RNA sequence: UCGGGUUUUCAGGCACGCACCCGGAAGGACGGUUUCCGUCUCAAGCGCUGC
Numbered sequence: 001u002c003g004g005g006u007u008u009u010c011a012g013g014c015a016c017g018c019a020c021c022c023g024g025a026a027g028g029a030c031g032g033u034u035u036c037c038g039u040c041u042c043a044a045g046c047g048c049u050g051c
Stems, first nucleotide, its partner, number of pairs: 001024006013051003028040005
RNA: chrB-b RNA